[Rfam]
This 133-nucleotide sequence from Eleutherodactylus coqui belongs to the Rfam family "Small Cajal body specific RNA 3". The organism belongs to Eleutherodactylus, within Eukaryota. About the family: scaRNAs are a specific class of small nuclear RNAs which localise to the Cajal bodies and guide the modification of RNA polymerase II transcribed spliceosomal RNAs U1, U2, U4, U5 and U12. Its Rfam clan is "SCARNA3 clan".
RNA sequence: UAUGGAAGCUGACUGACUCGUCGUGUGCCGGUGAAGUGUCGGCCCACGCUAUGAGGCUUCCUAUAGUAAUGUACUGGAGAUCUCUGUCUGGUUCUGUGCAGCCCCGGAGCCGGAUCGUUCCCCUCCAUACAUC
Numbered sequence: 001u002a003u004g005g006a007a008g009c010u011g012a013c014u015g016a017c018u019c020g021u022c023g024u025g026u027g028c029c030g031g032u033g034a035a036g037u038g039u040c041g042g043c044c045c046a047c048g049c050u051a052u053g054a055g056g057c058u059u060c061c062u063a064u065a066g067u068a069a070u071g072u073a074c075u076g077g078a079g080a081u082c083u084c085u086g087u088c089u090g091g092u093u094c095u096g097u098g099c100a101g102c103c104c105c106g107g108a109g110c111c112g113g114a115u116c117g118u119u120c121c122c123c124u125c126c127a128u129a130c131a132u133c
Stems, first nucleotide, its partner, number of pairs: 004061003009055002012052001022048004027043005076126004084117001086115003090111007
The family has 23 seed sequences and 642 matches in Rfam 15.1.